[Rfam]
RNA sequence: UACGACAAUGGCAAACCCGCCGAAAGACGGGGACGCAAAGCUAUAGGGCCUUCAAUGAGGAUGGCAGCCAGCUAUCGAAA
Number, nucleotide and partner (000 for none) at each position: 001u080002a000003c077004g076005a000006c000007a000008a000009u000010g000011g036012c035013a000014a000015a000016c031017c030018c029019g028020c000021c026022g000023a000024a000025a000026g021027a000028c019029g018030g017031g016032g000033a000034c067035g012036c011037a000038a000039a073040g072041c071042u070043a000044u000045a000046g069047g068048g065049c064050c063051u000052u000053c000054a000055a000056u000057g000058a000059g000060g000061a000062u000063g050064g049065c048066a000067g034068c047069c046070a042071g041072c040073u039074a000075u000076c004077g003078a000079a000080a001
The record is an 80-nucleotide sequence from Paenibacillus sp. CAA11, which matches "c-di-GMP-I-GGC riboswitch aptamer" in Rfam. Its Rfam clan is "c-di-GMP_I riboswitch clan". The family's consensus secondary structure is taken from published work.